mir-515 microRNA precursor family: an 87-nucleotide RNA from Pongo abelii. On this family, see Bentwich et al., Nat Genet 2005: "Identification of hundreds of conserved and nonconserved human microRNAs". Its Rfam clan is "mir-290 clan". The base pairs follow the family's consensus structure, which was predicted with RNAalifold.
[Rfam]
RNA sequence: UCUCAAACCGUAACACUCCAAAGGGAAGCGCUUUCUUUUCUUUUAGACAACAGAAAGGGCUUCCCUUUGCAGAGUCACAGCAUGAGA
Numbered sequence: 001u002c003u004c005a006a007a008c009c010g011u012a013a014c015a016c017u018c019c020a021a022a023g024g025g026a027a028g029c030g031c032u033u034u035c036u037u038u039u040c041u042u043u044u045a046g047a048c049a050a051c052a053g054a055a056a057g058g059g060c061u062u063c064c065c066u067u068u069g070c071a072g073a074g075u076c077a078c079a080g081c082a083u084g085a086g087a
Stems, first nucleotide, its partner, number of pairs: 001087005008080001010078002013075002016072002020068010031057005038052001